[Rfam]
RNA sequence: UGAUCCAAACGCCUAAAACACACAUGCACCGACACAGGGUCCCGGGUGCCGUGGCGACCAGCGGUCGAGCGGUCGGAUCCCUGGGGUGCAUGGAGGCCUAAC
Numbered sequence: 001u002g003a004u005c006c007a008a009a010c011g012c013c014u015a016a017a018a019c020a021c022a023c024a025u026g027c028a029c030c031g032a033c034a035c036a037g038g039g040u041c042c043c044g045g046g047u048g049c050c051g052u053g054g055c056g057a058c059c060a061g062c063g064g065u066c067g068a069g070c071g072g073u074c075g076g077a078u079c080c081c082u083g084g085g086g087u088g089c090a091u092g093g094a095g096g097c098c099u100a101a102c
Stems, first nucleotide, its partner, number of pairs: 023092008035083005040077003048073005
RNA: t44 RNA
Organism: Bisbaumannia pacifica